[Rfam]
RNA sequence: GGCUGUACGUACGGCUCGGCCUCCUCCCGCUCCCCGUCCCGCUGGCGCUACUUCCCCGGUGCCAGAGGCCCAGCCGAGCGGGCGGGGACCCAGUGGUACGUCCAAAGACCC
Number, nucleotide and partner (000 for none) at each position: 001g000002g000003c000004u000005g000006u000007a000008c000009g000010u098011a097012c096013g000014g094015c093016u092017c000018g090019g089020c000021c087022u086023c085024c084025u000026c082027c081028c080029g079030c078031u077032c076033c000034c000035c073036g070037u000038c068039c067040c000041g000042c065043u064044g063045g062046c061047g060048c059049u000050a000051c000052u000053u000054c000055c000056c000057c000058g000059g048060u047061g046062c045063c044064a043065g042066a000067g039068g038069c000070c036071c000072a000073g035074c000075c000076g032077a031078g030079c029080g028081g027082g026083c000084g024085g023086g022087g021088a000089c019090c018091c000092a016093g015094u014095g000096g012097u011098a010099c000100g000101u000102c000103c000104a000105a000106a000107g000108a000109c000110c000111c000
RNA: mraW RNA